Description: Rfam assigns this 234-nucleotide part of an RNA from Lewinellaceae bacterium SD302 to the family "Bacterial large subunit ribosomal RNA". The family's consensus secondary structure is taken from published work. The match comes from Rfam's covariance-model search (2692 bits).
Nucleotides: 234
Base pairs, nucleotide, nucleotide: 005090006089007088009087010086011085012084013083014082015081016080017079018078021045022044023043024042027039028038029037049056050055059071060070061069062068093232094231096229100222101221102220103219104218105217109198110197111196112195113194114193115192116191117190118189119188120186122155123154124153125152129147130146131145132144133143134142135141159183160182161181164179165178166177167176200210201209202208
Number, partner (000 for none) and nucleotide at each position: 001000g002000a003000g004000u005090u006089a007088c008000u009087c010086c011085u012084a013083u014082c015081u016080a017079g018078u019000a020000a021045g022044u023043a024042u025000a026000a027039g028038g029037u030000g031000u032000u033000c034000a035000g036000c037029a038028c039027c040000g041000u042024a043023u044022g045021c046000g047000a048000a049056g050055c051000g052000a053000a054000a055050g056049c057000g058000a059071g060070u061069c062068u063000u064000a065000a066000c067000a068062g069061g070060g071059c072000g073000a074000c075000a076000g077000a078018a079017c080016u081015a082014g083013g084012u085011g086010g087009g088007g089006u090005a091000g092000a093232c094231g095000c096229g097000a098000a099000a100222c101221c102220u103219g104218g105217u106000g107000a108000u109198c110197u111196a112195c113194c114193c115192a116191u117190g118189g119188g120186c121000a122155g123154g124153u125152u126000g127000a128000a129147g130146u131145u132144g133143g134142g135141a136000u137000a138000g139000u140000c141135u142134c143133c144132c145131a146130a147129u148000g149000g150000a151000g152125g153124a154123c155122c156000g157000a158000a159183c160182c161181g162000g163000u164179a165178c166177a167176u168000g169000u170000u171000g172000a173000a174000a175000a176167a177166u178165g179164u180000u181161c182160g183159g184000a185000u186120g187000a188119c189118c190117u191116g192115u193114g194113g195112g196111u197110a198109g199000g200210g201209g202208u203000g204000a205000a206000a207000g208202g209201c210200c211000a212000a213000u214000c215000a216000a217105a218104c219103c220102a221101g222100g223000a224000g225000a226000u227000a228000g229096c230000u231094c232093g233000u234000a
The organism belongs to Lewinellaceae, within Bacteria.